[Rfam]
RNA sequence: GUCCUAUCCCGAGCGGCCGAGAGAACUGGCUCAGCGACGCCGCAGCAACCCGGAUGCAGCCGGGUGCUACCGCCAGGAUCGAUGGGAG
Number, nucleotide and partner (000 for none) at each position: 001g000002u087003c086004c085005u084006a083007u082008c081009c000010c000011g000012a000013g043014c042015g041016g040017c039018c000019g000020a000021g032022a031023g030024a000025a000026c076027u075028g074029g073030c023031u022032c021033a000034g000035c000036g000037a000038c000039g017040c016041c015042g014043c013044a068045g067046c066047a065048a000049c064050c063051c062052g061053g060054a000055u000056g000057c000058a000059g000060c053061c052062g051063g050064g049065u047066g046067c045068u044069a000070c000071c000072g080073c029074c028075a027076g026077g000078a000079u000080c072081g008082a007083u006084g005085g004086g003087a002088g000
The family of this 88-nucleotide sequence from Garicola koreensis is "SAM riboswitch aptamer (S box leader)". It scores 56 bits against the family's covariance model. Lineage of the source: Bacteria > Bacillati > Actinomycetes > Micrococcaceae > Garicola. The base pairs follow the family's consensus structure, which is taken from published work.